[Rfam]
RNA sequence: GUGAGGUGAUGACGAAGUUUAUCCAUUCUCUGAGUGCAGUGGUGCUGUCCUCCUGCAGCACCCCCAGUUCCUGUUCUAGGGUCUGGGUGCUGUGCAGCCUCCAGAGACUCUCCAGUCUCCCAGUGUCCUACUGGGGGCUGCUGUGGUGUGUGGCUGGCUGCCUGCAGGAGGGAAGUGGUGCUGGCAGGGUUGCCGUCCUUGCUUGAGAUGAGGGAUGAUGUCUGAUCAC
Numbered sequence: 001g002u003g004a005g006g007u008g009a010u011g012a013c014g015a016a017g018u019u020u021a022u023c024c025a026u027u028c029u030c031u032g033a034g035u036g037c038a039g040u041g042g043u044g045c046u047g048u049c050c051u052c053c054u055g056c057a058g059c060a061c062c063c064c065c066a067g068u069u070c071c072u073g074u075u076c077u078a079g080g081g082u083c084u085g086g087g088u089g090c091u092g093u094g095c096a097g098c099c100u101c102c103a104g105a106g107a108c109u110c111u112c113c114a115g116u117c118u119c120c121c122a123g124u125g126u127c128c129u130a131c132u133g134g135g136g137g138c139u140g141c142u143g144u145g146g147u148g149u150g151u152g153g154c155u156g157g158c159u160g161c162c163u164g165c166a167g168g169a170g171g172g173a174a175g176u177g178g179u180g181c182u183g184g185c186a187g188g189g190u191u192g193c194c195g196u197c198c199u200u201g202c203u204u205g206a207g208a209u210g211a212g213g214g215a216u217g218a219u220g221u222c223u224g225a226u227c228a229c
Base pairs, nucleotide, nucleotide: 010228011227012226017221018220020218023214024213026212027211028210030207031206034202035201038182039181040180041179043177044176045175046174049172050171051169052168053167054166055165056164057163061089063087064086065085067083069081070080071079072078094161095160096159097158098157099156107147108146113140114139115138116137117136119135120134121133122132123131124130125129186200187199188198189197
This 229-nucleotide RNA from Bucorvus abyssinicus belongs to the Rfam family "Small nucleolar RNA SNORD17". NCBI's taxonomy places the organism under Eukaryota, Opisthokonta, Sarcopterygii, Dinosauria, Bucorvus. The family's RNA type in Rfam is C/D-box small nucleolar RNA. The family has 19 seed sequences and 1,015 matches in Rfam 15.1. On this family, see Huttenhofer et al., EMBO J 2001: "RNomics: an experimental approach that identifies 201 candidates for novel, small, non-messenger RNAs in mouse".